[Rfam]
RNA sequence: GUUAUUCCUUAUCUAUCUAAUAACGUUGAGUUUUCUGGAACCUGUCCCAUUGAACUCUCGCCGGAAAGCUCAAUAAGACAGGUUCUACGUUUAGUUGCCGCGCUUUUAUAUG
Dot-bracket structure: (.((.................(.(((..........((((((((((..(((((.((.((....)).)).)))))..)))))))))))))).....)).).............
A member of the RNA family "tp2" from Escherichia coli, 112 nucleotides long. By type it is a small RNA. A reference for the family is Rivas et al. (2001), "Computational identification of noncoding RNAs in E. coli by comparative genomics", Curr Biol. Taxonomically the source falls in Escherichia coli K-12 (Bacteria, Pseudomonadati, Gammaproteobacteria, Enterobacterales). The family's consensus secondary structure was predicted with RNAalifold.